Rfam assigns this 104-nucleotide RNA sequence from Prevotella sp. CAG:520 to the family "SAM-I/IV (S-adenosyl methionine) riboswitch aptamer".

RNA sequence: UACAUGCAUUACGAGUCUGACUUUAAUGUCGGCACCAACCGGUUCAGAAUAACGGUGGGUCUAUCAAUGCGAUUAGUUCAAUUCUAAUAAAAUUCUGAUUAUGA
Numbered sequence: 001u002a003c004a005u006g007c008a009u010u011a012c013g014a015g016u017c018u019g020a021c022u023u024u025a026a027u028g029u030c031g032g033c034a035c036c037a038a039c040c041g042g043u044u045c046a047g048a049a050u051a052a053c054g055g056u057g058g059g060u061c062u063a064u065c066a067a068u069g070c071g072a073u074u075a076g077u078u079c080a081a082u083u084c085u086a087a088u089a090a091a092a093u094u095c096u097g098a099u100u101a102u103g104a
Stems, first nucleotide, its partner, number of pairs: 006070005015033001017032005035058002039055003042050003046100002072088004
The base pairs follow the family's consensus structure, which is taken from published work. Rfam links the family to the GO terms regulation of gene expression and S-adenosylmethionine metabolic process. Taxonomically the source falls in Prevotella (Bacteria, Bacteroidota, Bacteroidia, Prevotellaceae). Rfam 15.1 lists 567 matches to the family in 508 species. On this family, see Weinberg et al., RNA 2008: "The aptamer core of SAM-IV riboswitches mimics the ligand-binding site of SAM-I riboswitches".